[Rfam]
RNA sequence: GCGCUGAAACCCUCAGCGCCAUGUGCAACCCCGGUACCUGAUACGGCCGGGGUUC
Numbered sequence: 001g002c003g004c005u006g007a008a009a010c011c012c013u014c015a016g017c018g019c020c021a022u023g024u025g026c027a028a029c030c031c032c033g034g035u036a037c038c039u040g041a042u043a044c045g046g047c048c049g050g051g052g053u054u055c
Stems, first nucleotide, its partner, number of pairs: 001019007025055001027053001029052007

The record is a 55-nucleotide RNA sequence from Piscinibacter aquaticus, which matches "L17-Actino-Proteobacteria ribosomal protein leader" in Rfam. The base pairs follow the family's consensus structure, which is taken from published work. A search with the family's covariance model found it, with a score of 43 bits.